Overview
This 490-nucleotide RNA sequence from Spirosoma montaniterrae belongs to the Rfam family "Bacterial RNase P class A". The family's RNA type in Rfam is ribozyme. The organism belongs to Spirosoma, within Bacteria. Rfam's curators write: Ribonuclease P (RNase P) is a ubiquitous endoribonuclease, found in archaea, bacteria and eukarya as well as chloroplasts and mitochondria. It scores 250 bits against the family's covariance model.
RNA sequence: AAUCCAAACUGGCUUAUCGCGUUCUGCACGCUUGUGCGGGAUGAGGAAAGUCCGGGCAGCGCAGAGCACCCUACUUCCUAACGGGAAGGCAGCCGGUUGGGAACGACCGGCUGACAGACAGGGCAACAGAAAAUAUACCGCCCUUUUUUAGUGAUGAGUGAUGAACGAUAAGUGAUGAGUGGCUGACGCAAUAUACUCAUCACUUAUCGUUCAUCACUCAUCACUAAAAAAGGGUAAGGGCGAACCGGUGGGGUAAGAGCCUACCGCUCAAUGGGCGACCAGUGGGGCACGGCAACCCUUAGGGGCUGAAAGACCAAAUAAGCAUCGGACGUGCGGCUGCUCGUCGCCAGCGGCCUGUAAGGGCCAACACCGAUGCGGGUAGGUCGAACGAGGUGUUCGGGUGACCGGCAUCCCAGAUAAAUGAUAAGCCAUCCGGUUGGGCCGCACAGGCAACGGAGGACAGAACCCGGCUUAUAGGUUUGGGUUGGCU
Numbered sequence: 001a002a003u004c005c006a007a008a009c010u011g012g013c014u015u016a017u018c019g020c021g022u023u024c025u026g027c028a029c030g031c032u033u034g035u036g037c038g039g040g041a042u043g044a045g046g047a048a049a050g051u052c053c054g055g056g057c058a059g060c061g062c063a064g065a066g067c068a069c070c071c072u073a074c075u076u077c078c079u080a081a082c083g084g085g086a087a088g089g090c091a092g093c094c095g096g097u098u099g100g101g102a103a104c105g106a107c108c109g110g111c112u113g114a115c116a117g118a119c120a121g122g123g124c125a126a127c128a129g130a131a132a133a134u135a136u137a138c139c140g141c142c143c144u145u146u147u148u149u150a151g152u153g154a155u156g157a158g159u160g161a162u163g164a165a166c167g168a169u170a171a172g173u174g175a176u177g178a179g180u181g182g183c184u185g186a187c188g189c190a191a192u193a194u195a196c197u198c199a200u201c202a203c204u205u206a207u208c209g210u211u212c213a214u215c216a217c218u219c220a221u222c223a224c225u226a227a228a229a230a231a232g233g234g235u236a237a238g239g240g241c242g243a244a245c246c247g248g249u250g251g252g253g254u255a256a257g258a259g260c261c262u263a264c265c266g267c268u269c270a271a272u273g274g275g276c277g278a279c280c281a282g283u284g285g286g287g288c289a290c291g292g293c294a295a296c297c298c299u300u301a302g303g304g305g306c307u308g309a310a311a312g313a314c315c316a317a318a319u320a321a322g323c324a325u326c327g328g329a330c331g332u333g334c335g336g337c338u339g340c341u342c343g344u345c346g347c348c349a350g351c352g353g354c355c356u357g358u359a360a361g362g363g364c365c366a367a368c369a370c371c372g373a374u375g376c377g378g379g380u381a382g383g384u385c386g387a388a389c390g391a392g393g394u395g396u397u398c399g400g401g402u403g404a405c406c407g408g409c410a411u412c413c414c415a416g417a418u419a420a421a422u423g424a425u426a427a428g429c430c431a432u433c434c435g436g437u438u439g440g441g442c443c444g445c446a447c448a449g450g451c452a453a454c455g456g457a458g459g460a461c462a463g464a465a466c467c468c469g470g471c472u473u474a475u476a477g478g479u480u481u482g483g484g485u486u487g488g489c490u
Base pairs, nucleotide, nucleotide: 001486002485003484004483005482006481007480008479009478010477011475012429013428014427015426016425017424018423020043021042022041023040024039025038026037027036028035048473049472050471052470053469054468055467056466057308058307059306060305069304070303071302072301073300074088075087076086077085078084089115090113091112092111093110094109095108096107097106098105099104116299117298121297122296123293124292138239139238140235141234142233143232144231145230146229147228148227149226150225151224152223153222154221155220156219157218158217159216160215161214162213163212164211165210166209167208168207169206170205171204172203173202174201175200176199177198178197179196180195181194247265248264249263250262251261252260266288267286268285269284270283272281273280274279312385313384314383315382322376323375324374325373326372327371392412393411394410395409397408398407399406400405